[Rfam]
RNA sequence: GUAGUUGGAUCUCCAACUUUUUGAAACGCUCCAAAUUU
Numbered sequence: 001g002u003a004g005u006u007g008g009a010u011c012u013c014c015a016a017c018u019u020u021u022u023g024a025a026a027c028g029c030u031c032c033a034a035a036u037u038u
Base pairs, nucleotide, nucleotide: 003018004017005016006015007014008013020035021034022033023032025030
Plastid psbT antisense RNA: a 38-nucleotide RNA sequence from Corymbia citriodora. The literature on the family includes a 2023 paper in Plant Commun by Richter et al., "Retrograde signaling in plants: A critical review focusing on the GUN pathway and beyond". The base pairs follow the family's consensus structure, which was predicted with LocARNA.